[Rfam]
RNA sequence: UUGCUGGCGCUGGUAAAAUGGAACCAAAUCAACAUUUCAACGGCUUUGGUCCCCUUCAACCAGCUCUAGAUA
Numbered sequence: 001u002u003g004c005u006g007g008c009g010c011u012g013g014u015a016a017a018a019u020g021g022a023a024c025c026a027a028a029u030c031a032a033c034a035u036u037u038c039a040a041c042g043g044c045u046u047u048g049g050u051c052c053c054c055u056u057c058a059a060c061c062a063g064c065u066c067u068a069g070a071u072a
Stems, first nucleotide, its partner, number of pairs: 004069003009064006017056002020052003024049005030043001

mir-133 microRNA precursor family: a 72-nucleotide RNA from Petromyzon marinus. Lineage of the source: Eukaryota > Bilateria > Chordata > Petromyzontidae > Petromyzon. Pairs were carried over by alignment from the consensus structure, which was predicted with PFOLD. Rfam's curators write: mir-133 was first experimentally characterised in mouse and homologues have since been discovered in several other species. The mature sequence is excised from the 3' arm of the hairpin.